[Rfam]
RNA sequence: AAAUGAAAGGAGCAAUAACCAACACUCUUGAUAGAAUAAGAAAUUGGUUAUUGUUCCUUUAU
Numbered sequence: 001a002a003a004u005g006a007a008a009g010g011a012g013c014a015a016u017a018a019c020c021a022a023c024a025c026u027c028u029u030g031a032u033a034g035a036a037u038a039a040g041a042a043a044u045u046g047g048u049u050a051u052u053g054u055u056c057c058u059u060u061a062u
Stems, first nucleotide, its partner, number of pairs: 006060012021045002026041005